This 97-nucleotide RNA sequence from gamma proteobacterium HdN1 belongs to the Rfam family "Bacterial small signal recognition particle RNA". Pairs were carried over by alignment from the consensus structure, which is taken from published work. The organism belongs to Gammaproteobacteria, within Bacteria. A search with the family's covariance model found it, with a score of 76 bits.
[Rfam]
RNA sequence: CAUCGGUCCCUCCGCAACGAUAGCUUGUGAACCCCGCCAGGUCCGGAAGGAAGCAACGGUAGCUAGUGAUUCGUGUGCCGGAGUGUGGCUGGUGGGG
Numbered sequence: 001c002a003u004c005g006g007u008c009c010c011u012c013c014g015c016a017a018c019g020a021u022a023g024c025u026u027g028u029g030a031a032c033c034c035c036g037c038c039a040g041g042u043c044c045g046g047a048a049g050g051a052a053g054c055a056a057c058g059g060u061a062g063c064u065a066g067u068g069a070u071u072c073g074u075g076u077g078c079c080g081g082a083g084u085g086u087g088g089c090u091g092g093u094g095g096g097g
Base pairs, nucleotide, nucleotide: 004091005090006089007088008087010083011082012081013080014079015075017074018073019072020071023067024066025065027063028062034059035058036057042051043050044049